A member of the RNA family "Small nucleolar RNA SNORA28" from Phyllostomus discolor, 124 nucleotides long. Rfam's curators write: ACA28 is a member of the H/ACA class of snoRNA that guide the sites of modification of uridines to pseudouridines. Lineage of the source: Eukaryota > Eumetazoa > Tetrapoda > Phyllostominae > Phyllostomus. Its family is annotated with RNA processing and nucleolus in the Gene Ontology. It scores 112 bits against the family's covariance model. The family has 26 seed sequences and 922 matches in Rfam 15.1. The family is grouped with related families in Rfam's "SNORA28 clan". On this family, see Huttenhofer et al., EMBO J 2001: "RNomics: an experimental approach that identifies 201 candidates for novel, small, non-messenger RNAs in mouse".
RNA sequence: AAGCAACACUGUGGCAGAUGAUCAAAACUAUCUGACACAAUUUGAGCUUGCUAUAGUAACAAAAUCUAACCUACUCCAGUGCUCUCUCCUCUAUGAGAAAAGCAAUUAUACAGAUUUAAACAGU
Numbered sequence: 001a002a003g004c005a006a007c008a009c010u011g012u013g014g015c016a017g018a019u020g021a022u023c024a025a026a027a028c029u030a031u032c033u034g035a036c037a038c039a040a041u042u043u044g045a046g047c048u049u050g051c052u053a054u055a056g057u058a059a060c061a062a063a064a065u066c067u068a069a070c071c072u073a074c075u076c077c078a079g080u081g082c083u084c085u086c087u088c089c090u091c092u093a094u095g096a097g098a099a100a101a102g103c104a105a106u107u108a109u110a111c112a113g114a115u116u117u118a119a120a121c122a123g124u
Base pairs, nucleotide, nucleotide: 009044010039011038012037013036015034016033017032018031019030020029062117063116064115065114066113067112072110073109079103080102085098086097087096088095